[Rfam]
RNA sequence: UAUUGUGGUGGUUUCUGUGUGUGGCAGAUCUGCGAGUGUAUCAGAACUGUACCAUAACUACCACAGAGAUCAGAAAGGAGCAGGCAGUGCUGAGGACUCCAAGCUUUCAGUUUUCAGCAAUUUGUUCAGCUCCUACAGAA
Dot-bracket structure: ....(((((((...........(((.(.((((.........)))).).)).).....)))))))............(((((.(((...)))................(((...........)))....))))).......
Numbered sequence: 001u002a003u004u005g006u007g008g009u010g011g012u013u014u015c016u017g018u019g020u021g022u023g024g025c026a027g028a029u030c031u032g033c034g035a036g037u038g039u040a041u042c043a044g045a046a047c048u049g050u051a052c053c054a055u056a057a058c059u060a061c062c063a064c065a066g067a068g069a070u071c072a073g074a075a076a077g078g079a080g081c082a083g084g085c086a087g088u089g090c091u092g093a094g095g096a097c098u099c100c101a102a103g104c105u106u107u108c109a110g111u112u113u114u115c116a117g118c119a120a121u122u123u124g125u126u127c128a129g130c131u132c133c134u135a136c137a138g139a140a
Stems, first nucleotide, its partner, number of pairs: 005064007023052001024050002027047001029045004077133005083091003108124003